[Rfam]
RNA sequence: CGAUAGCUGAACUGCCAGAUCCCCUCGGGGUCGGUGAGCGGUUCGUCGCCGAGGUGGUCGCCGCCGGCCAGCGCCUCCAGCACCGCGUCCUCGCCGUAUUUGCCGGUGCCGAUACGGUCCACCCGGCCGUGCACGAUCAGCACCAGCCGGUCACCCGGCCCGCCCGCCUCACCGAUCAGUUCACCGGGCGCGAAUUCCUGCUGGGUGAAGCGGUCGCCGAGCGCCGCCAGCACCUCGGUAUCGGUGAACUCCCGCAGGGCGGGCAGCUCACGCAGUUCAUCGGGGAUGAUCGCCACAUCGCUGCCGCUGGUGUCGAAAUCGAUACGCCCGUCGCCGAGGGUGUACGUCAGCCGGCGGUUCACGCGAUAGGUGCCACCGGAAACCUGCACCCAGGGCAGCAGCCGCAGCAGCCAUCGGGAAGUAAUGCCCUGCAUCUGCGGUGCGGUUUUGGUGGUGGUCGCCAAAUUCCGUGCCGCGGUGGUGCUCAGGCUGGAAUUCCGGGCGUCUUCCG
Numbered sequence: 001c002g003a004u005a006g007c008u009g010a011a012c013u014g015c016c017a018g019a020u021c022c023c024c025u026c027g028g029g030g031u032c033g034g035u036g037a038g039c040g041g042u043u044c045g046u047c048g049c050c051g052a053g054g055u056g057g058u059c060g061c062c063g064c065c066g067g068c069c070a071g072c073g074c075c076u077c078c079a080g081c082a083c084c085g086c087g088u089c090c091u092c093g094c095c096g097u098a099u100u101u102g103c104c105g106g107u108g109c110c111g112a113u114a115c116g117g118u119c120c121a122c123c124c125g126g127c128c129g130u131g132c133a134c135g136a137u138c139a140g141c142a143c144c145a146g147c148c149g150g151u152c153a154c155c156c157g158g159c160c161c162g163c164c165c166g167c168c169u170c171a172c173c174g175a176u177c178a179g180u181u182c183a184c185c186g187g188g189c190g191c192g193a194a195u196u197c198c199u200g201c202u203g204g205g206u207g208a209a210g211c212g213g214u215c216g217c218c219g220a221g222c223g224c225c226g227c228c229a230g231c232a233c234c235u236c237g238g239u240a241u242c243g244g245u246g247a248a249c250u251c252c253c254g255c256a257g258g259g260c261g262g263g264c265a266g267c268u269c270a271c272g273c274a275g276u277u278c279a280u281c282g283g284g285g286a287u288g289a290u291c292g293c294c295a296c297a298u299c300g301c302u303g304c305c306g307c308u309g310g311u312g313u314c315g316a317a318a319u320c321g322a323u324a325c326g327c328c329c330g331u332c333g334c335c336g337a338g339g340g341u342g343u344a345c346g347u348c349a350g351c352c353g354g355c356g357g358u359u360c361a362c363g364c365g366a367u368a369g370g371u372g373c374c375a376c377c378g379g380a381a382a383c384c385u386g387c388a389c390c391c392a393g394g395g396c397a398g399c400a401g402c403c404g405c406a407g408c409a410g411c412c413a414u415c416g417g418g419a420a421g422u423a424a425u426g427c428c429c430u431g432c433a434u435c436u437g438c439g440g441u442g443c444g445g446u447u448u449u450g451g452u453g454g455u456g457g458u459c460g461c462c463a464a465a466u467u468c469c470g471u472g473c474c475g476c477g478g479u480g481g482u483g484c485u486c487a488g489g490c491u492g493g494a495a496u497u498c499c500g501g502g503c504g505u506c507u508u509c510c511g
Stems, first nucleotide, its partner, number of pairs: 006390001008388002011385001018328001025322004031316002037311001039309004045305001047303002050300003054233002058229001060227002063224002065111004077102001079100002082097002085094002117222002120219001123216001127212001130209001131206002134203002140197001148192002154188005162177001165174002235295001237293001240290004245285001249283002254278001256277002262269001329342004351379004356374002360372003391431007400422001403418001405416001407415001437476004442471004447465006477510002480506003484502003488498001